[Rfam]
RNA sequence: ACGCCCUGCCGGGAGCGUCCGCAGGUGGCCGGAACUCCGGCCGCCACCGGGCCCGCUGCCGGAUGGUCUUCCGAACCGAGGCGUCAUG
Numbered sequence: 001a002c003g004c005c006c007u008g009c010c011g012g013g014a015g016c017g018u019c020c021g022c023a024g025g026u027g028g029c030c031g032g033a034a035c036u037c038c039g040g041c042c043g044c045c046a047c048c049g050g051g052c053c054c055g056c057u058g059c060c061g062g063a064u065g066g067u068c069u070u071c072c073g074a075a076c077c078g079a080g081g082c083g084u085c086a087u088g
Stems, first nucleotide, its partner, number of pairs: 001084005009062004014057004020051001024048002026043007064078003
Shown here is an 88-nucleotide RNA from Streptomyces sp. Root369, a member of the family "dauA ncRNA motif". Taxonomically the source falls in Streptomyces (Bacteria, Actinomycetota, Actinomycetes, Kitasatosporales). The literature on the family includes a 2024 paper in Nucleic Acids Res by Narunsky et al., "The discovery of novel noncoding RNAs in 50 bacterial genomes". It is annotated as a cis-regulatory element.